[Rfam]
RNA sequence: CCCCUCGAGGGGCGCUGCGACCGGCUGCGGGUCUUCCGCCAGUCCGGCCAGGCUCGACGGGAAUCCCUUCCACAACGGCGCCCGGAAACG
Numbered sequence: 001c002c003c004c005u006c007g008a009g010g011g012g013c014g015c016u017g018c019g020a021c022c023g024g025c026u027g028c029g030g031g032u033c034u035u036c037c038g039c040c041a042g043u044c045c046g047g048c049c050a051g052g053c054u055c056g057a058c059g060g061g062a063a064u065c066c067c068u069u070c071c072a073c074a075a076c077g078g079c080g081c082c083c084g085g086a087a088a089c090g
Stems, first nucleotide, its partner, number of pairs: 002060002005057004021047004026042001

SAH (S-adenosyl-L-homocysteine) riboswitch aptamer: a 90-nucleotide RNA from Xanthomonas boreopolis. Taxonomically the source falls in Xanthomonas (Bacteria, Pseudomonadati, Pseudomonadota, Lysobacteraceae). The match comes from Rfam's covariance-model search (52 bits).